Small nucleolar RNA SNORA64/SNORA10 family: a 129-nucleotide RNA sequence from Crocuta crocuta. Clan: SNORA64 clan.

Nucleotides: 129
Stems, first nucleotide, its partner, number of pairs: 004060002007057002011054003015050001019039002022036005070119005076114001085108003090103001092101002
Number, partner (000 for none) and nucleotide at each position: 001000g002000g003000c004060c005059u006000c007057u008056c009000a010000g011054c012053u013052c014000c015050a016000c017000u018000u019039a020038a021000u022036c023035a024034u025033a026032c027000u028000c029000u030000g031000u032026g033025u034024g035023u036022g037000c038020u039019u040000g041000g042000c043000g044000u045000a046000u047000u048000u049000u050015u051000a052013g053012a054011g055000a056008g057007g058000c059005a060004g061000a062000g063000g064000a065000a066000g067000g068000c069000u070119u071118u072117c073116c074115u075000a076114a077000u078000a079000c080000a081000c082000g083000a084000c085108a086107g087106a088000c089000u090103g091000g092101u093100c094000c095000a096000a097000a098000g099000u100093g101092g102000g103090u104000u105000c106087u107086c108085u109000g110000u111000u112000c113000c114076u115074g116073g117072g118071a119070g120000u121000g122000c123000g124000a125000c126000a127000g128000u129000u
Rfam's curators write: This family belongs to the H/ACA class of small nucleolar RNAs (snoRNAs) which act as guides in the the modification of uridines to pseudouridines. This family includes the human snoRNAs U64 and ACA10 and mouse MBI-29.
Lineage of the source: Eukaryota > Eumetazoa > Sarcopterygii > Carnivora > Crocuta.
It scores 90 bits against the family's covariance model.
The literature on the family includes a 1999 paper in EMBO J by Narayanan et al., "Nucleolar localization signals of box H/ACA small nucleolar RNAs".